Small nucleolar RNA SNORA73 family: a 198-nucleotide RNA from Pteropus vampyrus. Rfam describes the family as follows. U17 (SNORA73A and SNORA73B) also known as E1 belongs to the H/ACA class of small nucleolar RNAs (snoRNAs). It scores 114 bits against the family's covariance model. Its Rfam clan is "snR30-U17 clan". For this family Rfam cites "5'ETS rRNA processing facilitated by four small RNAs: U14, E3, U17, and U3" (Enright et al., RNA, 1996). Its family is annotated with nucleolus and RNA processing in the Gene Ontology. It is annotated as an H/ACA-box small nucleolar RNA.

[Rfam]
RNA sequence: UCUCAUUGGUACCCCAAACGUCACUGUUCCCAGGCUCUGUCCACAUGGUAUAGGGGAGCACAGGGCUCUGCCCCAUGAUGUACAGUCCCUUUCCACAAUGUUGGAGAUGAAGCCAAGCCUUGAGUCUGCACCUGCAUAUUCCUACAGUUUCUCAGAGUCCUGUGGAUGAUGUCUGAGGAGACAAACCAGUUUUGAUAG
Numbered sequence: 001u002c003u004c005a006u007u008g009g010u011a012c013c014c015c016a017a018a019c020g021u022c023a024c025u026g027u028u029c030c031c032a033g034g035c036u037c038u039g040u041c042c043a044c045a046u047g048g049u050a051u052a053g054g055g056g057a058g059c060a061c062a063g064g065g066c067u068c069u070g071c072c073c074c075a076u077g078a079u080g081u082a083c084a085g086u087c088c089c090u091u092u093c094c095a096c097a098a099u100g101u102u103g104g105a106g107a108u109g110a111a112g113c114c115a116a117g118c119c120u121u122g123a124g125u126c127u128g129c130a131c132c133u134g135c136a137u138a139u140u141c142c143u144a145c146a147g148u149u150u151c152u153c154a155g156a157g158u159c160c161u162g163u164g165g166a167u168g169a170u171g172u173c174u175g176a177g178g179a180g181a182c183a184a185a186c187c188a189g190u191u192u193u194g195a196u197a198g
Stems, first nucleotide, its partner, number of pairs: 001104002004100003008041004013034002017028004046095003054089004058083001060081003063076001131194001134191001137188001148180006157167004